[Rfam]
RNA sequence: AAGGUACGGCGGAUGCUUGCGUGGAGUUUUCCAUGAGGAAAGUCCGGGCUGCUGUGAAGCAGGGUUCCGUCUAACGGACGGCCACCGUAAGGUGAGGGACAGUGCAACAGAAAGCAGACCGCCCGCCCAUAUUUCGACCUUGACUUCUCUUGACUCUUGAGUAGAUCAGGAAAAAGUCCAAUCAUGGAAAUAUGGGCGGGUAAGGGUGAAACGGCGGGGUAAGAGCCCACCAGCGCCUUGAGUAAUCAUGGCGGCUAUGUAAACCCAACCCGCAGCAAGAAGGGUAUGGUAAAAGCUUCACAAUAUUAACCCUUCGCUUGAACGUCACGGCAACGUGGCGGCUAGAUAAAUAAGCAUCCUAGACAUAACCCGGCUUACAGCCGUGCCUUUCUC
Number, nucleotide and partner (000 for none) at each position: 001a389002a388003g387004g386005u385006a384007c383008g382009g381010c380011g378012g358013a357014u356015g355016c354017u353018u352019g000020c035021g034022u033023g032024g031025a030026g000027u000028u000029u000030u025031c024032c023033a022034u021035g020036a000037g000038g000039a000040a376041a375042g374043u000044c373045c372046g371047g370048g369049c275050u274051g273052c272053u000054g000055u000056g000057a000058a000059g299060c000061a000062g271063g270064g269065u268066u267067c081068c080069g079070u078071c077072u000073a000074a000075c000076g000077g071078a070079c069080g068081g067082c096083c094084a093085c092086c091087g000088u000089a000090a000091g086092g085093u084094g083095a000096g082097g266098g265099a000100c000101a000102g264103u263104g260105c259106a258107a000108c000109a000110g000111a000112a000113a000114g000115c000116a000117g000118a000119c205120c204121g201122c200123c199124c198125g197126c196127c195128c194129a193130u192131a191132u190133u189134u188135c187136g000137a000138c000139c000140u000141u000142g000143a000144c000145u000146u000147c000148u000149c000150u000151u000152g000153a000154c000155u000156c000157u000158u000159g000160a000161g000162u000163a000164g000165a000166u000167c000168a000169g000170g000171a000172a000173a000174a000175a000176g000177u000178c000179c000180a000181a000182u000183c000184a000185u000186g000187g135188a134189a133190a132191u131192a130193u129194g128195g127196g126197c125198g124199g123200g122201u121202a000203a000204g120205g119206g000207u000208g000209a000210a000211a000212c000213g231214g230215c000216g228217g227218g226219g000220u000221a000222a000223g000224a000225g000226c218227c217228c216229a000230c214231c213232a000233g255234c253235g252236c251237c250238u000239u248240g247241a246242g000243u000244a000245a000246u241247c240248a239249u000250g237251g236252c235253g234254g000255c233256u000257a000258u106259g105260u104261a000262a000263a103264c102265c098266c097267a066268a065269c064270c063271c062272g052273c051274a050275g049276c000277a000278a000279g315280a314281a313282g312283g000284g000285u000286a000287u000288g000289g000290u000291a000292a306293a000294a304295g000296c000297u000298u000299c059300a000301c000302a000303a000304u294305a000306u292307u000308a000309a000310c000311c000312c282313u281314u280315c279316g000317c000318u000319u000320g000321a000322a000323c340324g339325u338326c337327a336328c335329g334330g000331c000332a000333a000334c329335g328336u327337g326338g325339c324340g323341g000342c000343u000344a000345g000346a000347u000348a000349a000350a000351u000352a018353a017354g016355c015356a014357u013358c012359c000360u000361a000362g000363a000364c000365a000366u000367a000368a000369c048370c047371c046372g045373g044374c042375u041376u040377a000378c011379a000380g010381c009382c008383g007384u006385g005386c004387c003388u002389u001390u000391c000392u000393c000
The family of this 393-nucleotide RNA from Hydrogenimonas sp. is "Bacterial RNase P class A". Clan: RNaseP clan. The family's RNA type in Rfam is ribozyme.